RNA: Metazoan signal recognition particle RNA
RNA sequence: CUUGGGCAUGGUGGCACAUGCCUGUAUUCCUGGCUACUCGGAGACUGAGGCAGGAGGAUCACUUGAGCCCAGAAGUUCUGGGCUGUAGUGCACUAUGCUGAUCAGGUGUCUGUACUAAGUUGGGCAUCAAUAUGGUGACCUUCCAGAGUGGGGGACAACCAGGUUGCCUAAGGAGGGGUGAACUGGCCCAGGUCGGAAAAGGAGCAGGUCAAAACUCCUAUGCUGAUCAGUAGUGGAAUCACGCCUGUGAAUAGCCACUGCGCUCCAGCCUGGGCAACAUAGCGAGACCCUGUCUCUU
Numbered sequence: 001c002u003u004g005g006g007c008a009u010g011g012u013g014g015c016a017c018a019u020g021c022c023u024g025u026a027u028u029c030c031u032g033g034c035u036a037c038u039c040g041g042a043g044a045c046u047g048a049g050g051c052a053g054g055a056g057g058a059u060c061a062c063u064u065g066a067g068c069c070c071a072g073a074a075g076u077u078c079u080g081g082g083c084u085g086u087a088g089u090g091c092a093c094u095a096u097g098c099u100g101a102u103c104a105g106g107u108g109u110c111u112g113u114a115c116u117a118a119g120u121u122g123g124g125c126a127u128c129a130a131u132a133u134g135g136u137g138a139c140c141u142u143c144c145a146g147a148g149u150g151g152g153g154g155a156c157a158a159c160c161a162g163g164u165u166g167c168c169u170a171a172g173g174a175g176g177g178g179u180g181a182a183c184u185g186g187c188c189c190a191g192g193u194c195g196g197a198a199a200a201g202g203a204g205c206a207g208g209u210c211a212a213a214a215c216u217c218c219u220a221u222g223c224u225g226a227u228c229a230g231u232a233g234u235g236g237a238a239u240c241a242c243g244c245c246u247g248u249g250a251a252u253a254g255c256c257a258c259u260g261c262g263c264u265c266c267a268g269c270c271u272g273g274g275c276a277a278c279a280u281a282g283c284g285a286g287a288c289c290c291u292g293u294c295u296c297u298u
Stems, first nucleotide, its partner, number of pairs: 002044002004023007028042003047296008059285002062282002067275006078268005084262007093254004098249001103247007111236001113235005119228001121226001123224005128166004133161004140154006167173002174219006184211005193202002